[Rfam]
RNA sequence: AGGGCCUCCUGUGACUGGCGAAAGGUGGGAUACCACCGGGGAGCAGGACAUCAAGGCCCGGUCAGCCGUUCGCCUGGGCUCCCCAC
Numbered sequence: 001a002g003g004g005c006c007u008c009c010u011g012u013g014a015c016u017g018g019c020g021a022a023a024g025g026u027g028g029g030a031u032a033c034c035a036c037c038g039g040g041g042a043g044c045a046g047g048a049c050a051u052c053a054a055g056g057c058c059c060g061g062u063c064a065g066c067c068g069u070u071c072g073c074c075u076g077g078g079c080u081c082c083c084c085a086c
Stems, first nucleotide, its partner, number of pairs: 003052002007048006015040002017074005025036004064080004
ZMP/ZTP riboswitch aptamer (pfl RNA motif): an 86-nucleotide sequence from Desulfuromonas sp. AOP6.
The organism belongs to Desulfuromonas, within Bacteria.
The match comes from Rfam's covariance-model search (63 bits).
Its family is annotated with regulation of purine nucleotide biosynthetic process and one-carbon metabolic process in the Gene Ontology.